RNA: ALIL pseudoknot
RNA sequence: CGCGUUUUUUGCCCAGGCGGAGCUCGACCGCCGAUUCAAGUCCUGAGAGCCUUCGUCGAUCAGUAUCGCGACACCUACGGGGUCGAGCCGAUCUGCAAAGUCCUGCAGAUUGCCCCA
Numbered sequence: 001c002g003c004g005u006u007u008u009u010u011g012c013c014c015a016g017g018c019g020g021a022g023c024u025c026g027a028c029c030g031c032c033g034a035u036u037c038a039a040g041u042c043c044u045g046a047g048a049g050c051c052u053u054c055g056u057c058g059a060u061c062a063g064u065a066u067c068g069c070g071a072c073a074c075c076u077a078c079g080g081g082g083u084c085g086a087g088c089c090g091a092u093c094u095g096c097a098a099a100g101u102c103c104u105g106c107a108g109a110u111u112g113c114c115c116c117a
Stems, first nucleotide, its partner, number of pairs: 016032005079116004089112002092109006